[Rfam]
Shown here is a 64-nucleotide sequence, a member of the family "S15-Flavobacteria ribosomal protein leader".
The sequence is in the family's curated seed alignment.
Rfam classes the family as a cis-regulatory leader.
A reference for the family is Eckert and Weinberg (2020), "Discovery of 20 novel ribosomal leader candidates in bacteria and archaea", BMC Microbiol.
The family is grouped with related families in Rfam's "Ribosomal Protein S15 Leader clan".
The family's consensus secondary structure is taken from published work.
RNA sequence: UAUAUUUGCGCCUCCAAAGCUUAAAUUUUUGGAUACAUAAAAAUUAUUAAUAAAUAUUGGAAUG
Numbered sequence: 001u002a003u004a005u006u007u008g009c010g011c012c013u014c015c016a017a018a019g020c021u022u023a024a025a026u027u028u029u030u031g032g033a034u035a036c037a038u039a040a041a042a043a044u045u046a047u048u049a050a051u052a053a054a055u056a057u058u059g060g061a062a063u064g
Stems, first nucleotide, its partner, number of pairs: 014032006